[Rfam]
Nucleotides: 059
Stems, first nucleotide, its partner, number of pairs: 010051003014047003027044006
Number, partner (000 for none) and nucleotide at each position: 001000g002000g003000c004000c005000u006000u007000g008000g009000c010051c011050u012049u013000c014047c015046a016045a017000c018000u019000c020000g021000g022000a023000u024000c025000g026000u027044c028043c029042g030041g031040c032039a033000c034000g035000u036000u037000c038000c039032u040031g041030c042029c043028g044027g045016u046015u047014g048000a049012a050011a051010g052000g053000g054000u055000g056000u057000a058000c059000c
Rfam assigns this 59-nucleotide RNA sequence from Actinospica durhamensis to the family "msiK RNA". Rfam 15.1 lists 1,374 matches to the family in 1,364 species. The family's consensus secondary structure is taken from published work. NCBI's taxonomy places the organism under Bacteria, Actinomycetota, Actinomycetes, Catenulisporales, Actinospica.